RNA sequence: CACGAAUAUGGCAAACCUAUCGUGAGGUAGGGACGCAAAACUAUAGGGUCUUCAAAUGAAGAUAGCCAGGUGCCGAAG
Numbered sequence: 001c002a003c004g005a006a007u008a009u010g011g012c013a014a015a016c017c018u019a020u021c022g023u024g025a026g027g028u029a030g031g032g033a034c035g036c037a038a039a040a041c042u043a044u045a046g047g048g049u050c051u052u053c054a055a056a057u058g059a060a061g062a063u064a065g066c067c068a069g070g071u072g073c074c075g076a077a078g
Stems, first nucleotide, its partner, number of pairs: 001078001003075002011036002016031006034065001039071001041069002046067002048063003
RNA: c-di-GMP-I-GGC riboswitch aptamer
Organism: Vallitalea pronyensis